[Rfam]
RNA: chrB-b RNA
RNA sequence: GCGGGACCCAGCAACCUCCCGAUCAGGCGCUUCGCCCAAGUGUUGC
Numbered sequence: 001g002c003g004g005g006a007c008c009c010a011g012c013a014a015c016c017u018c019c020c021g022a023u024c025a026g027g028c029g030c031u032u033c034g035c036c037c038a039a040g041u042g043u044u045g046c
Base pairs, nucleotide, nucleotide: 002021003020004019005018006017011046012045013044014043015042026036027035028034029033